[Rfam]
RNA sequence: UAUCCGCCGACUGGAGAGCGGUCGUUCAGCGACCCACCGAAGGGGCAAGGCAACCGGCACAGGCCGGCGGCCUAAACUCUCAGGUAACAGGACAGAGGGAGAGGC
Numbered sequence: 001u002a003u004c005c006g007c008c009g010a011c012u013g014g015a016g017a018g019c020g021g022u023c024g025u026u027c028a029g030c031g032a033c034c035c036a037c038c039g040a041a042g043g044g045g046c047a048a049g050g051c052a053a054c055c056g057g058c059a060c061a062g063g064c065c066g067g068c069g070g071c072c073u074a075a076a077c078u079c080u081c082a083g084g085u086a087a088c089a090g091g092a093c094a095g096a097g098g099g100a101g102a103g104g105c
Stems, first nucleotide, its partner, number of pairs: 007099002011095003020034004036085003039081002043079003049072002

Glycine riboswitch aptamer: a 105-nucleotide RNA from Isoalcanivorax pacificus. The base pairs follow the family's consensus structure.